[Rfam]
RNA sequence: UGAGUGCAAAAUAUACUUACCUCCACGUGGUGCACCCUGGGCAACGUAUACUUAUACGGCAAAAAAGUCUAU
Numbered sequence: 001u002g003a004g005u006g007c008a009a010a011a012u013a014u015a016c017u018u019a020c021c022u023c024c025a026c027g028u029g030g031u032g033c034a035c036c037c038u039g040g041g042c043a044a045c046g047u048a049u050a051c052u053u054a055u056a057c058g059g060c061a062a063a064a065a066a067g068u069c070u071a072u
Base pairs, nucleotide, nucleotide: 002037004035005034006033007032019031020030021029045058046057047056048055049054

About this RNA:
A member of the RNA family "HDV ribozyme from F. prausnitzii" from Rodentolepis nana, 72 nucleotides long. On this family, see Webb et al., Science 2009: "Widespread occurrence of self-cleaving ribozymes". The match comes from Rfam's covariance-model search (49 bits). NCBI's taxonomy places the organism under Eukaryota, Eumetazoa, Protostomia, Rhabditophora, Rodentolepis.